Record summary: The family of this 141-nucleotide sequence from Paspalum vaginatum is "small nucleolar RNA snoR135". Taxonomically the source falls in Paspalum (Eukaryota, Streptophyta, Euphyllophyta, Liliopsida). Rfam classes the family as an H/ACA-box small nucleolar RNA. For this family Rfam cites "Mining small RNA sequencing data: a new approach to identify small nucleolar RNAs in Arabidopsis" (Chen and Wu, Nucleic Acids Res, 2009). The base pairs follow the family's consensus structure, which was predicted with RNAalifold. Gene Ontology terms of the family: RNA processing and nucleolus.
[Rfam]
RNA sequence: CAUGCAGGAUAAGUGUGUAUCGGCUCUACGCUAUUUUGAUGCGUCUUUUGCCGAAAGUGUUUCCUGCAAUAUCAAUCUGAGGAAAAUGGGCAGUUGGGUUAAGCAUAUCUGCUUUCUCCAACAAUCAUUUUCCUCUCAUGC
Numbered sequence: 001c002a003u004g005c006a007g008g009a010u011a012a013g014u015g016u017g018u019a020u021c022g023g024c025u026c027u028a029c030g031c032u033a034u035u036u037u038g039a040u041g042c043g044u045c046u047u048u049u050g051c052c053g054a055a056a057g058u059g060u061u062u063c064c065u066g067c068a069a070u071a072u073c074a075a076u077c078u079g080a081g082g083a084a085a086a087u088g089g090g091c092a093g094u095u096g097g098g099u100u101a102a103g104c105a106u107a108u109c110u111g112c113u114u115u116c117u118c119c120a121a122c123a124a125u126c127a128u129u130u131u132c133c134u135c136u137c138a139u140g141c
Stems, first nucleotide, its partner, number of pairs: 004067006015044006079135011093122004